[Rfam]
RNA sequence: GUUGUUAUCUUUGGUUAUCUAGCUGUAUGAGUGUUCUGCUCGUCAUAAAGCUAGAUAACCGAAAGUAAAAAC
Numbered sequence: 001g002u003u004g005u006u007a008u009c010u011u012u013g014g015u016u017a018u019c020u021a022g023c024u025g026u027a028u029g030a031g032u033g034u035u036c037u038g039c040u041c042g043u044c045a046u047a048a049a050g051c052u053a054g055a056u057a058a059c060c061g062a063a064a065g066u067a068a069a070a071a072c
Stems, first nucleotide, its partner, number of pairs: 001072003005068004010063015026047005
Rfam assigns this 72-nucleotide RNA sequence from Takifugu rubripes to the family "mir-9/mir-79 microRNA precursor family". The base pairs follow the family's consensus structure, which was predicted with RNAalifold. Rfam 15.1 lists 5,647 matches to the family in 934 species. On this family, see Lagos-Quintana et al., Science 2001: "Identification of novel genes coding for small expressed RNAs".